[Rfam]
RNA sequence: UACAUCCGCUGGGGGGGCCCGAACGGGCUGAGAUCCGCCGAACGAGGCAGACCACCCCAGAACCUGAUCUCGGUAAUGCGAGCGGAGGGAAGCGGUCAAUAUGUUGA
Numbered sequence: 001u002a003c004a005u006c007c008g009c010u011g012g013g014g015g016g017g018c019c020c021g022a023a024c025g026g027g028c029u030g031a032g033a034u035c036c037g038c039c040g041a042a043c044g045a046g047g048c049a050g051a052c053c054a055c056c057c058c059a060g061a062a063c064c065u066g067a068u069c070u071c072g073g074u075a076a077u078g079c080g081a082g083c084g085g086a087g088g089g090a091a092g093c094g095g096u097c098a099a100u101a102u103g104u105u106g107a
Stems, first nucleotide, its partner, number of pairs: 006095005011058004016052001017028004036050001039047001063088003069082004